[Rfam]
Nucleotides: 055
Base pairs, nucleotide, nucleotide: 001053003051004050005049006048007047008046009045010044011043012042013041014040016039017038018037019036020035021034022033023031024030
Number, partner (000 for none) and nucleotide at each position: 001053g002000g003051g004050u005049a006048u007047u008046c009045u010044u011043g012042g013041g014040u015000g016039g017038a018037u019036a020035a021034u022033a023031c024030g025000g026000a027000u028000u029000a030024c031023g032000u033022u034021g035020u036019u037018a038017u039016u040014g041013c042012u043011u044010a045009a046008g047007a048006a049005u050004a051003c052000g053001c054000g055000u